[Rfam]
RNA: Bacterial RNase P class A
Organism: Thermomonas haemolytica
RNA sequence: GGAGUCGGCCAGGCAGUCGCGUCAUCCUUCGGGGAUGCCGAGGAAAGUCCGGGCUCCACAGGGCACGGUGCCAGGUAACGCCUGGGCGGCGCGAGCCGACGGAAAGUGCAACAGAAAGAUACCGCCGAUGGCCCUGUCACCCCUUUGCCGCCGCGGCCGACGCGGCCCGGCAUCGGACUUGUCGGCGCAGCCGACCAAGUCUCUUUCGGAGGCGGCAAAGGGGUGGCAGGGCACAGGCAAGGGUGAAAUGGUGCGGUAAGAGCGCACCGCGAGCCUGGCAACAGGCCGGCACGGCAAACCCCACCGGGAGCAAGACCAAAUAGGGAGACGAUGAGGCGGCCCGCCGAGUCUCCGGGUAGGUUGCUCGAGCGUAGCGGUGACGCUGCGCCUAGAGGAAUGGCUGCCACGGCGCGCAAGCGCCGACAGAACCCGGCUUAUCGGCCGGCUCCGCCG
Numbered sequence: 001g002g003a004g005u006c007g008g009c010c011a012g013g014c015a016g017u018c019g020c021g022u023c024a025u026c027c028u029u030c031g032g033g034g035a036u037g038c039c040g041a042g043g044a045a046a047g048u049c050c051g052g053g054c055u056c057c058a059c060a061g062g063g064c065a066c067g068g069u070g071c072c073a074g075g076u077a078a079c080g081c082c083u084g085g086g087c088g089g090c091g092c093g094a095g096c097c098g099a100c101g102g103a104a105a106g107u108g109c110a111a112c113a114g115a116a117a118g119a120u121a122c123c124g125c126c127g128a129u130g131g132c133c134c135u136g137u138c139a140c141c142c143c144u145u146u147g148c149c150g151c152c153g154c155g156g157c158c159g160a161c162g163c164g165g166c167c168c169g170g171c172a173u174c175g176g177a178c179u180u181g182u183c184g185g186c187g188c189a190g191c192c193g194a195c196c197a198a199g200u201c202u203c204u205u206u207c208g209g210a211g212g213c214g215g216c217a218a219a220g221g222g223g224u225g226g227c228a229g230g231g232c233a234c235a236g237g238c239a240a241g242g243g244u245g246a247a248a249u250g251g252u253g254c255g256g257u258a259a260g261a262g263c264g265c266a267c268c269g270c271g272a273g274c275c276u277g278g279c280a281a282c283a284g285g286c287c288g289g290c291a292c293g294g295c296a297a298a299c300c301c302c303a304c305c306g307g308g309a310g311c312a313a314g315a316c317c318a319a320a321u322a323g324g325g326a327g328a329c330g331a332u333g334a335g336g337c338g339g340c341c342c343g344c345c346g347a348g349u350c351u352c353c354g355g356g357u358a359g360g361u362u363g364c365u366c367g368a369g370c371g372u373a374g375c376g377g378u379g380a381c382g383c384u385g386c387g388c389c390u391a392g393a394g395g396a397a398u399g400g401c402u403g404c405c406a407c408g409g410c411g412c413g414c415a416a417g418c419g420c421c422g423a424c425a426g427a428a429c430c431c432g433g434c435u436u437a438u439c440g441g442c443c444g445g446c447u448c449c450g451c452c453g
Stems, first nucleotide, its partner, number of pairs: 001449010011438001012405007020040002023037006045436003049433005054310004061342004066306005071085005086100001087098004101301002106299002108295002122242002124238003129233002132230001250268006269290001270288002273286005314362004324353006335345003369388008